The family of this 98-nucleotide sequence from Thermanaeromonas sp. C210 is "Glycine riboswitch aptamer".
[Rfam]
RNA sequence: CUCUGGAGAGCGUCCCCCCUGGGAGCCGGGCGGCCCGGCAGGGGGGAACACCAACGGGGUAAGGCGUAAAGCCUAUUCUCUCAGGUGGAAGGACAGAG
Numbered sequence: 001c002u003c004u005g006g007a008g009a010g011c012g013u014c015c016c017c018c019c020u021g022g023g024a025g026c027c028g029g030g031c032g033g034c035c036c037g038g039c040a041g042g043g044g045g046g047a048a049c050a051c052c053a054a055c056g057g058g059g060u061a062a063g064g065c066g067u068a069a070a071g072c073c074u075a076u077u078c079u080c081u082c083a084g085g086u087g088g089a090a091g092g093a094c095a096g097a098g
Stems, first nucleotide, its partner, number of pairs: 001098005013047009050086003054081001057080003063073002
NCBI's taxonomy places the organism under Bacteria, Bacillati, Clostridia, Neomoorellales, Thermanaeromonas. Gene Ontology term of the family: glycine biosynthetic process.